[Rfam]
Record summary: Small nucleolar RNA SNORD70: an 88-nucleotide RNA sequence from Mytilus edulis. Rfam links the family to the GO terms RNA processing and nucleolus. Taxonomically the source falls in Mytilus (Eukaryota, Opisthokonta, Lophotrochozoa, Mytiloidea).
RNA sequence: GUUAUAGCUGUCAAUGAUGGAAAACUUGCGACUGACUACAGUGAUGUCAUUCUACCUAUUUCGUCACUACCUCUGAGAUAGCUAUAGC
Numbered sequence: 001g002u003u004a005u006a007g008c009u010g011u012c013a014a015u016g017a018u019g020g021a022a023a024a025c026u027u028g029c030g031a032c033u034g035a036c037u038a039c040a041g042u043g044a045u046g047u048c049a050u051u052c053u054a055c056c057u058a059u060u061u062c063g064u065c066a067c068u069a070c071c072u073c074u075g076a077g078a079u080a081g082c083u084a085u086a087g088c
Base pairs, nucleotide, nucleotide: 001088002087003086004085005084006083007082008081009080010079011078012077

Background
The pairing is the family consensus, mapped onto this sequence. It is annotated as a C/D-box small nucleolar RNA.